The family of this 192-nucleotide RNA sequence from Pantoea alhagi is "Yersinia sRNA 276". The source organism's lineage runs through Bacteria, Pseudomonadati, Gammaproteobacteria, Enterobacterales and Pantoea. The family's RNA type in Rfam is antisense RNA. The family's consensus secondary structure was predicted with RNAfold. It scores 175 bits against the family's covariance model.
[Rfam]
RNA sequence: CACCGACAUCAGCGAUUCAUUCUGCGAACCCUGGCCGACCGCCAGAUAGGCGUUCAUGCCCAGCUCUUUCAUCUGCUGUUCGCCGAUAACGCGCGUGGUGAUGUUGCUCCAGGCGUCCGCCAGCUGACGCGCCUGCGAAGCCAGAUAGGCAGCGUUACAGAUAUUCGGCGGCAUAUUGCCAAGAUCUUUCGC
Number, nucleotide and partner (000 for none) at each position: 001c000002a000003c000004c000005g186006a185007c000008a000009u000010c000011a000012g032013c000014g030015a000016u028017u027018c026019a000020u024021u000022c000023u000024g020025c000026g018027a017028a016029c000030c014031c000032u012033g043034g042035c041036c000037g000038a000039c000040c000041g035042c034043c033044a000045g000046a000047u000048a000049g000050g059051c058052g000053u000054u000055c000056a000057u000058g051059c050060c000061c000062a077063g076064c075065u000066c000067u000068u000069u000070c000071a000072u000073c000074u000075g064076c063077u062078g132079u131080u000081c129082g128083c000084c126085g125086a000087u123088a000089a000090c000091g120092c119093g118094c000095g116096u115097g114098g000099u000100g108101a000102u106103g000104u000105u000106g102107c000108u100109c000110c000111a000112g000113g000114c097115g096116u095117c000118c093119g092120c091121c000122a000123g087124c000125u085126g084127a000128c082129g081130c000131g079132c078133c160134u159135g158136c000137g156138a155139a000140g153141c152142c000143a000144g000145a000146u000147a000148g000149g000150c000151a000152g141153c140154g000155u138156u137157a000158c135159a134160g133161a000162u000163a000164u183165u182166c000167g180168g179169c178170g000171g000172c000173a000174u000175a000176u000177u000178g169179c168180c167181a000182a165183g164184a000185u006186c005187u000188u000189u000190c000191g000192c000